Rfam assigns this 186-nucleotide sequence to the family "malK-I RNA". The family's consensus secondary structure is taken from published work.

RNA sequence: UUCUGGUCGGGCUGAUUCCAAAUCCACAUUCUUGGCAGCUUGACAACAAAAAAGGAGGGUAAAACCAAACUCCGGGAGACUCCCGGUGCGGCAUUGUGGAGACAUGCCGUAAUACGUUCGCCAAGCCCGGCGUUCGUGAGAGUGCGCAUUGCGGAGGCAGCGCAGUCAGAGUCAGAAACUAUGGCA
Numbered sequence: 001u002u003c004u005g006g007u008c009g010g011g012c013u014g015a016u017u018c019c020a021a022a023u024c025c026a027c028a029u030u031c032u033u034g035g036c037a038g039c040u041u042g043a044c045a046a047c048a049a050a051a052a053a054g055g056a057g058g059g060u061a062a063a064a065c066c067a068a069a070c071u072c073c074g075g076g077a078g079a080c081u082c083c084c085g086g087u088g089c090g091g092c093a094u095u096g097u098g099g100a101g102a103c104a105u106g107c108c109g110u111a112a113u114a115c116g117u118u119c120g121c122c123a124a125g126c127c128c129g130g131c132g133u134u135c136g137u138g139a140g141a142g143u144g145c146g147c148a149u150u151g152c153g154g155a156g157g158c159a160g161c162g163c164a165g166u167c168a169g170a171g172u173c174a175g176a177a178a179c180u181a182u183g184g185c186a
Stems, first nucleotide, its partner, number of pairs: 006044009018035004072086004078173005087111008096103002114137003119132004140167002143164005150159003